[Rfam]
The family of this 100-nucleotide RNA from Secundilactobacillus malefermentans is "23S methyl RNA motif". For this family Rfam cites "Identification of 22 candidate structured RNAs in bacteria using the CMfinder comparative genomics pipeline" (Weinberg et al., Nucleic Acids Res, 2007). Rfam links the family to the GO term regulation of gene expression. A search with the family's covariance model found it, with a score of 73 bits. Taxonomically the source falls in Secundilactobacillus (Bacteria, Bacillati, Bacillota, Lactobacillaceae).
RNA sequence: CGUUUGGCAGUUAAUAUCGGUUUUCCCGUUAGUAACUGGCAAUUUGCACUUCAUUAACGCAGUUCCUCGCCGUGCCCACACCGAGGAGUUGCGUUUUUUU
Numbered sequence: 001c002g003u004u005u006g007g008c009a010g011u012u013a014a015u016a017u018c019g020g021u022u023u024u025c026c027c028g029u030u031a032g033u034a035a036c037u038g039g040c041a042a043u044u045u046g047c048a049c050u051u052c053a054u055u056a057a058c059g060c061a062g063u064u065c066c067u068c069g070c071c072g073u074g075c076c077c078a079c080a081c082c083g084a085g086g087a088g089u090u091g092c093g094u095u096u097u098u099u100u
Stems, first nucleotide, its partner, number of pairs: 002044001004042003008038006015031002018028002056095014072081003